Rfam assigns this 185-nucleotide RNA sequence from Oreochromis niloticus to the family "U2 spliceosomal RNA".

[Rfam]
RNA sequence: AAAUUUUUUUCGAAAAAACAAAACAAAAAACAUCUGUUCUUAUCAGUUUAAUAUCUGAUACGCCCCCGAUUUGGGGGCAACGUAUUAAACGCAUUUUUAGAACAGGGAGCUGAAUAAGGGGCUCGCUCCGUUCGCUCCACGUAUCGACCCGGUAUUGCAGCGCCUCCGGGAACGGUGCCCCCUUU
Numbered sequence: 001a002a003a004u005u006u007u008u009u010u011c012g013a014a015a016a017a018a019c020a021a022a023a024c025a026a027a028a029a030a031c032a033u034c035u036g037u038u039c040u041u042a043u044c045a046g047u048u049u050a051a052u053a054u055c056u057g058a059u060a061c062g063c064c065c066c067c068g069a070u071u072u073g074g075g076g077g078c079a080a081c082g083u084a085u086u087a088a089a090c091g092c093a094u095u096u097u098u099a100g101a102a103c104a105g106g107g108a109g110c111u112g113a114a115u116a117a118g119g120g121g122c123u124c125g126c127u128c129c130g131u132u133c134g135c136u137c138c139a140c141g142u143a144u145c146g147a148c149c150c151g152g153u154a155u156u157g158c159a160g161c162g163c164c165u166c167c168g169g170g171a172a173c174g175g176u177g178c179c180c181c182c183u184u185u
Base pairs, nucleotide, nucleotide: 005022006021007020041060042059043058044057045056046055062078063077064076065075066074067073068072106138107137108136109135110134112132113131118129119128120127121126141178142177143176144175145174146173148170149169150168151167152166
The family is grouped with related families in Rfam's "U2 clan". Rfam describes the family as follows. U2 is a small nuclear RNA (snRNA) component of the spliceosome (involved in pre-mRNA splicing). Complementary binding between U2 snRNA (in an area lying towards the 5' end but 3' to hairpin I) and the branchpoint sequence (BPS) of the intron results the bulging out of an unpaired adenosine, on the BPS, which initiates a nucleophilic attack at the intronic 5' splice site, thus starting the first of two transesterification reactions that mediate splicing. The family's RNA type in Rfam is spliceosomal small nuclear RNA. The match comes from Rfam's covariance-model search (114 bits).